RNA: DUF805 RNA
RNA sequence: AAAUUGUGGAGACCAGACCCACAUUAAAAACGGGGCGAUACCGAAAAGCCAUACGAGUAGGACAAAU
Numbered sequence: 001a002a003a004u005u006g007u008g009g010a011g012a013c014c015a016g017a018c019c020c021a022c023a024u025u026a027a028a029a030a031c032g033g034g035g036c037g038a039u040a041c042c043g044a045a046a047a048g049c050c051a052u053a054c055g056a057g058u059a060g061g062a063c064a065a066a067u
Stems, first nucleotide, its partner, number of pairs: 006022004034050003041061002